Shown here is a 75-nucleotide RNA sequence from Hymenochirus boettgeri, a member of the family "Small nucleolar RNA SNORD24".
The base pairs follow the family's consensus structure, which was predicted with PFOLD.
Rfam classes the family as a C/D-box small nucleolar RNA.
Its family is annotated with RNA processing and nucleolus in the Gene Ontology.
RNA sequence: UGCAAAUGAUGUGACUGGAUAUUUGCUAUCUGAGUUGGUUUGAUGACUCUUUCAACCACCAAGAUCACUGAUGCA
Numbered sequence: 001u002g003c004a005a006a007u008g009a010u011g012u013g014a015c016u017g018g019a020u021a022u023u024u025g026c027u028a029u030c031u032g033a034g035u036u037g038g039u040u041u042g043a044u045g046a047c048u049c050u051u052u053c054a055a056c057c058a059c060c061a062a063g064a065u066c067a068c069u070g071a072u073g074c075a
Stems, first nucleotide, its partner, number of pairs: 001075004